Shown here is a 78-nucleotide RNA sequence from Citrobacter youngae, a member of the family "SymR antitoxin". The source organism's lineage runs through Bacteria, Pseudomonadota, Enterobacteriaceae, Citrobacter and Citrobacter youngae.

RNA sequence: AGUCAUGGUCUCUAUUCCUAUUCCAAUAGUGAUUGUGAUUAGCGAGGCGCUCGUGUUGCAGCACGGGCGUCUUGCGAA
Numbered sequence: 001a002g003u004c005a006u007g008g009u010c011u012c013u014a015u016u017c018c019u020a021u022u023c024c025a026a027u028a029g030u031g032a033u034u035g036u037g038a039u040u041a042g043c044g045a046g047g048c049g050c051u052c053g054u055g056u057u058g059c060a061g062c063a064c065g066g067g068c069g070u071c072u073u074g075c076g077a078a
Stems, first nucleotide, its partner, number of pairs: 001040008012029005042075003046071011
Dot-bracket structure: ((((((((...(((((........)))))...)))))))).(((.(((((((((((....))))))))))).)))...